About this RNA:
The family of this 169-nucleotide RNA sequence from Enterococcus pallens is "M-box riboswitch aptamer (ykoK leader)".
RNA sequence: UAACAACCUUGUUAGGUGAGGCUCCUAUACAAACAUAAGCUAUUGCUCAGAAACAUCGAAAGAUGCCAAUGGGUAAAACAGGAAUUGUCGGAUUAAGGCUUUUUCCAAGAUAGCUAAGAUGAACAUCUUUACGUUGUAUAGUGCUAAAACUCGGACGAUGAGAUGAUGC
Numbered sequence: 001u002a003a004c005a006a007c008c009u010u011g012u013u014a015g016g017u018g019a020g021g022c023u024c025c026u027a028u029a030c031a032a033a034c035a036u037a038a039g040c041u042a043u044u045g046c047u048c049a050g051a052a053a054c055a056u057c058g059a060a061a062g063a064u065g066c067c068a069a070u071g072g073g074u075a076a077a078a079c080a081g082g083a084a085u086u087g088u089c090g091g092a093u094u095a096a097g098g099c100u101u102u103u104u105c106c107a108a109g110a111u112a113g114c115u116a117a118g119a120u121g122a123a124c125a126u127c128u129u130u131a132c133g134u135u136g137u138a139u140a141g142u143g144c145u146a147a148a149a150c151u152c153g154g155a156c157g158a159u160g161a162g163a164u165g166a167u168g169c
Stems, first nucleotide, its partner, number of pairs: 006164001008162003011156002013096001015151003020145003025141008039114005045074005054065004081105004087099003116129003
For this family Rfam cites "New RNA motifs suggest an expanded scope for riboswitches in bacterial genetic control" (Barrick et al., Proc Natl Acad Sci U S A, 2004). NCBI's taxonomy places the organism under Bacteria, Bacillati, Bacilli, Enterococcaceae, Enterococcus pallens.